[Rfam]
RNA sequence: UACUCUUACGCCUGAAAUUUGCUUUUUUUACCUGGUUUCUAUGCUCUCUUACUUUGAGAAAAUAAAGGUGAGCAAAGUUUCAGGUGUGUGAGUGC
Number, nucleotide and partner (000 for none) at each position: 001u000002a093003c092004u091005c090006u000007u088008a000009c086010g085011c084012c083013u082014g081015a080016a078017a000018u076019u075020u074021g000022c000023u000024u000025u000026u072027u071028u070029u000030a000031c068032c067033u066034g000035g000036u000037u000038u000039c000040u000041a000042u000043g000044c000045u000046c000047u000048c000049u000050u000051a000052c000053u000054u000055u000056g000057a000058g000059a000060a000061a000062a000063u000064a000065a000066a033067g032068g031069u000070g028071a027072g026073c000074a020075a019076a018077g000078u016079u000080u015081c014082a013083g012084g011085u010086g009087u000088g007089u000090g005091a004092g003093u002094g000095c000
A member of the RNA family "mir-87 microRNA precursor family" from Camponotus floridanus, 95 nucleotides long.
For this family Rfam cites "Temporal regulation of microRNA expression in Drosophila melanogaster mediated by hormonal signals and broad-Complex gene activity" (Sempere et al., Dev Biol, 2003).
Pairs were carried over by alignment from the consensus structure, which was predicted with RNAalifold.
Rfam links the family to the GO terms RISC complex and miRNA-mediated post-transcriptional gene silencing.